Rfam assigns this 211-nucleotide sequence from Carassius auratus to the family "Small nucleolar RNA U3". Clan: U3 clan.
Nucleotides: 211
Stems, first nucleotide, its partner, number of pairs: 001041002007034001009032003015027004050064001054061001075210004093199012107163001109161001119151008127142005164187002166184007
Number, partner (000 for none) and nucleotide at each position: 001041a002040a003000c004000a005000c006000u007034a008000u009032a010031u011030u012000u013000u014000c015027a016026g017025g018024g019000a020000u021000c022000a023000u024018u025017u026016c027015u028000a029000u030011a031010g032009u033000u034007u035000u036000u037000u038000a039000c040002u041001u042000g043000g044000a045000a046000a047000u048000g049000u050064g051000u052000u053000u054061u055000g056000a057000a058000a059000g060000u061054g062000u063000u064050u065000g066000u067000c068000u069000c070000c071000c072000a073000a074000c075210c076209c077208a078207c079000g080000a081000u082000g083000a084000u085000g086000a087000g088000c089000u090000g091000u092000a093199a094198u095197g096196c097195u098194c099193c100192u101191u102190u103189c104188u105000g106000a107163g108000a109161g110000u111000g112000a113000a114000u115000u116000g117000a118000g119151g120150a121149u122148g123147g124146a125145a126144c127142u128141g129140u130139g131138a132000c133000u134000u135000u136000g137000a138131u139130c140129a141128c142127a143000a144126g145125u146124u147123c148122u149121a150120u151119c152000a153000c154000c155000g156000a157000u158000g159000a160000g161109c162000g163107u164187u165186c166184g167183u168182a169181u170180u171179g172178c173000u174000c175000u176000u177000g178172g179171c180170a181169a182168u183167a184166u185000u186165g187164a188104a189103g190102a191101a192100a193099g194098g195097a196096g197095u198094a199093u200000g201000a202000u203000c204000u205000g206000a207078g208077u209076g210075g211000u

About the family: Small nucleolar RNAs (snoRNAs) are involved in the processing and modification of rRNA in the nucleolus.